The family of this 335-nucleotide part of an RNA from Samia ricini is "Eukaryotic large subunit ribosomal RNA". The sequence is in the family's curated seed alignment.
[Rfam]
RNA sequence: GAGUCUAGCAUGUGUGCGAGUCAUUGAGUUGAUUUUAUUAGAUAAAACUGAAAGGCGCAACGAAAGUGAAGGCGGACGCUCGCCGUCCGCUCAGGGAGGAUGGGGCCGAGAUCUCGAUCGAGGCUCUCGCACUCCCGAGGCGUCUCGUUUCCAAUCAGUGAAUGCAGGCGCGCUCUGAGCACAGAUGCUGGGACCCGAAAGAUGGUGAACUAUGCCUGGUCAGGUCGAAGUCAGGGGAAACCCUGAUGGAGGACCGUAGCGAUUCUGACGUGCAAAUCGAUCGUCGGAACUGGGUAUAGGGGCGAAAGACUAAUCGAACCAUCUAGUAGCUGGUU
Numbered sequence: 001g002a003g004u005c006u007a008g009c010a011u012g013u014g015u016g017c018g019a020g021u022c023a024u025u026g027a028g029u030u031g032a033u034u035u036u037a038u039u040a041g042a043u044a045a046a047a048c049u050g051a052a053a054g055g056c057g058c059a060a061c062g063a064a065a066g067u068g069a070a071g072g073c074g075g076a077c078g079c080u081c082g083c084c085g086u087c088c089g090c091u092c093a094g095g096g097a098g099g100a101u102g103g104g105g106c107c108g109a110g111a112u113c114u115c116g117a118u119c120g121a122g123g124c125u126c127u128c129g130c131a132c133u134c135c136c137g138a139g140g141c142g143u144c145u146c147g148u149u150u151c152c153a154a155u156c157a158g159u160g161a162a163u164g165c166a167g168g169c170g171c172g173c174u175c176u177g178a179g180c181a182c183a184g185a186u187g188c189u190g191g192g193a194c195c196c197g198a199a200a201g202a203u204g205g206u207g208a209a210c211u212a213u214g215c216c217u218g219g220u221c222a223g224g225u226c227g228a229a230g231u232c233a234g235g236g237g238a239a240a241c242c243c244u245g246a247u248g249g250a251g252g253a254c255c256g257u258a259g260c261g262a263u264u265c266u267g268a269c270g271u272g273c274a275a276a277u278c279g280a281u282c283g284u285c286g287g288a289a290c291u292g293g294g295u296a297u298a299g300g301g302g303c304g305a306a307a308g309a310c311u312a313a314u315c316g317a318a319c320c321a322u323c324u325a326g327u328a329g330c331u332g333g334u335u
Stems, first nucleotide, its partner, number of pairs: 005191007013183005020056003025051001027049004060067002094136005102127006138174002140171006149162002194333002197330001201323006210299011221287001223255004230247007259284004264280002267278002301311002
Annotation:
The family is grouped with related families in Rfam's "LSU clan". Rfam links the family to the GO terms structural constituent of ribosome and ribosome.